[Rfam]
Shown here is a 334-nucleotide sequence from Varanus komodoensis, a member of the family "Nuclear RNase P". It scores 205 bits against the family's covariance model. By type it is a ribozyme. The source organism's lineage runs through Eukaryota, Euteleostomi, Paleoanguimorpha, Varanidae and Varanus. Clan: RNaseP clan. The literature on the family includes a 1998 paper in Annu Rev Biochem by Frank and Pace, "Ribonuclease P: unity and diversity in a tRNA processing ribozyme".
RNA sequence: GCUGGGAGGAAGCUCUCCGUAGAGGCCACUUACGGGGUGUUCGUCACCCUUGCUCCGCCUUUGGGAAGGUCUGAGAGAAGGGCCAAGCACCGCCCUAGCAGGGCGCCGCCUGCGGAAGGCGGGUGAGUUCCCAGCAAUGUGGGUCUCCAGUGAAGCCAAAGAUAGGGGCAGGAGAAGCAGCGGAGGGGCCUCGUUCUCCUUCCUGCGGAUGCCUCCGCCGCUUGCUUGGGAUUUGGGAAUGACUCACGGCCGGCAAUGAUGAGUACAAUGGGCAGAGGUGAAGUAAAGCUGAAAGCGCGCUUCAUAACCCAAUUCAGACUAGUCUCCAACCAGC
Number, nucleotide and partner (000 for none) at each position: 001g334002c333003u332004g331005g000006g000007a000008g327009g326010a325011a000012g000013c277014u276015c275016u274017c272018c271019g000020u000021a062022g061023a060024g059025g058026c000027c000028a000029c000030u000031u000032a000033c000034g000035g049036g048037g047038u046039g045040u000041u000042c000043g000044u000045c039046a038047c037048c036049c035050u000051u000052g000053c000054u000055c000056c000057g000058c025059c024060u023061u022062u021063g000064g000065g000066a000067a000068g000069g000070u000071c317072u316073g315074a314075g313076a000077g000078a000079a000080g000081g251082g250083c249084c248085a000086a000087g000088c000089a000090c000091c105092g104093c103094c102095c101096u000097a000098g000099c000100a000101g095102g094103g093104c092105g091106c122107c121108g120109c119110c118111u117112g000113c000114g000115g000116a000117a111118g110119g109120c108121g107122g106123g247124u246125g245126a244127g243128u242129u241130c000131c000132c000133a000134g000135c000136a000137a000138u000139g000140u000141g000142g000143g232144u231145c230146u229147c228148c000149a000150g000151u000152g000153a000154a000155g000156c000157c000158a000159a000160a000161g000162a000163u000164a000165g000166g000167g000168g000169c000170a000171g000172g000173a000174g000175a000176a000177g000178c000179a000180g000181c000182g000183g000184a000185g000186g000187g000188g000189c000190c000191u000192c000193g000194u000195u000196c000197u000198c000199c000200u000201u000202c000203c000204u000205g000206c000207g000208g000209a000210u000211g000212c000213c000214u000215c000216c000217g000218c000219c000220g000221c000222u000223u000224g000225c000226u000227u000228g147229g146230g145231a144232u143233u000234u000235g000236g000237g000238a000239a000240u000241g129242a128243c127244u126245c125246a124247c123248g084249g083250c082251c081252g000253g000254c000255a000256a000257u000258g000259a000260u000261g000262a000263g000264u000265a000266c000267a000268a000269u000270g000271g018272g017273c000274a016275g015276a014277g013278g305279u304280g303281a302282a301283g300284u299285a000286a000287a000288g000289c000290u000291g000292a000293a000294a000295g000296c000297g000298c000299g284300c283301u282302u281303c280304a279305u278306a000307a000308c000309c000310c000311a000312a000313u075314u074315c073316a072317g071318a000319c000320u000321a000322g000323u000324c000325u010326c009327c008328a000329a000330c000331c004332a003333g002334c001